[Rfam]
RNA: U12 minor spliceosomal RNA
RNA sequence: UUGCCUUAAACUAAUGAGUAAGGAAAACAAAGCGGGUGGUGAGAGCUGCCCGCCGCGCUAAUCUCUUUGCGCAAGUAUUUUUGGAGGGUUUAUAGGCUGGCCGAGCGAGGACGCUGCUUACUUCGCAGAACCCGCUCGUGCGGGCCUCCC
Numbered sequence: 001u002u003g004c005c006u007u008a009a010a011c012u013a014a015u016g017a018g019u020a021a022g023g024a025a026a027a028c029a030a031a032g033c034g035g036g037u038g039g040u041g042a043g044a045g046c047u048g049c050c051c052g053c054c055g056c057g058c059u060a061a062u063c064u065c066u067u068u069g070c071g072c073a074a075g076u077a078u079u080u081u082u083g084g085a086g087g088g089u090u091u092a093u094a095g096g097c098u099g100g101c102c103g104a105g106c107g108a109g110g111a112c113g114c115u116g117c118u119u120a121c122u123u124c125g126c127a128g129a130a131c132c133c134g135c136u137c138g139u140g141c142g143g144g145c146c147u148c149c150c
Base pairs, nucleotide, nucleotide: 004023005022006021007020008019032053033052034051035050036049037048038047039046088150094147095146096145097144098143100141102138103137105135106134107133109131114128115127116126117125